[Rfam]
RNA: epsC RNA
RNA sequence: AGGUAAUGUCUAUACGACCUAUAUCAGAGUAGACACUCGGUCAUGCUGUGGGUAUCUGAUACCUUAGACGUACAUCGUCAAGAGUGUGAUGUGAGGUUGGGUUAGAUGCCCA
Numbered sequence: 001a002g003g004u005a006a007u008g009u010c011u012a013u014a015c016g017a018c019c020u021a022u023a024u025c026a027g028a029g030u031a032g033a034c035a036c037u038c039g040g041u042c043a044u045g046c047u048g049u050g051g052g053u054a055u056c057u058g059a060u061a062c063c064u065u066a067g068a069c070g071u072a073c074a075u076c077g078u079c080a081a082g083a084g085u086g087u088g089a090u091g092u093g094a095g096g097u098u099g100g101g102u103u104a105g106a107u108g109c110c111c112a
Stems, first nucleotide, its partner, number of pairs: 001020004007035007036095004040090008050064006067079004098112005